The record is a 95-nucleotide RNA from Allonocardiopsis opalescens, which matches "TPP riboswitch aptamer (THI element)" in Rfam. Pairs were carried over by alignment from the consensus structure, which is taken from published work. Rfam links the family to the GO term thiamine pyrophosphate binding. The organism belongs to Allonocardiopsis, within Bacteria.
RNA sequence: GGCUACGACGCGGGGUGCCCGGACGCCGGGCUGAGAACACACCCGUGGAACCUGAUCUAGCUCGUACUAGCGAAGGGACGUCGGCCAUGGCCACG
Numbered sequence: 001g002g003c004u005a006c007g008a009c010g011c012g013g014g015g016u017g018c019c020c021g022g023a024c025g026c027c028g029g030g031c032u033g034a035g036a037a038c039a040c041a042c043c044c045g046u047g048g049a050a051c052c053u054g055a056u057c058u059a060g061c062u063c064g065u066a067c068u069a070g071c072g073a074a075g076g077g078a079c080g081u082c083g084g085c086c087a088u089g090g091c092c093a094c095g
Stems, first nucleotide, its partner, number of pairs: 006083005011045004016039001017031005051076003057070004